This 81-nucleotide sequence from Rhizobium sp. SEMIA4064 belongs to the Rfam family "chrB-a RNA".
RNA sequence: UCCAUGGGGUUGCGAUCACCCCAUGAGGCCACGGCUGAAGAAUCGCGUCCUGGAACCCGAGCCAACGGAGGACGCGUUAUG
Numbered sequence: 001u002c003c004a005u006g007g008g009g010u011u012g013c014g015a016u017c018a019c020c021c022c023a024u025g026a027g028g029c030c031a032c033g034g035c036u037g038a039a040g041a042a043u044c045g046c047g048u049c050c051u052g053g054a055a056c057c058c059g060a061g062c063c064a065a066c067g068g069a070g071g072a073c074g075c076g077u078u079a080u081g
Base pairs, nucleotide, nucleotide: 005023006022007021008020009019010018045075046074047073048072049071050070